[Rfam]
RNA sequence: GGAUAAGGAUCUUCUGCUAAAAUCGCCCACGUCUUGUGGGCAACGCAGAAGUCAGUACAUCCUGUACA
Numbered sequence: 001g002g003a004u005a006a007g008g009a010u011c012u013u014c015u016g017c018u019a020a021a022a023u024c025g026c027c028c029a030c031g032u033c034u035u036g037u038g039g040g041c042a043a044c045g046c047a048g049a050a051g052u053c054a055g056u057a058c059a060u061c062c063u064g065u066a067c068a
Stems, first nucleotide, its partner, number of pairs: 011051007026040005055067004
Shown here is a 68-nucleotide RNA from Bacillus sp. J14TS2, a member of the family "Bacillaceae-1 RNA". Pairs were carried over by alignment from the consensus structure, which is taken from published work. A search with the family's covariance model found it, with a score of 65 bits.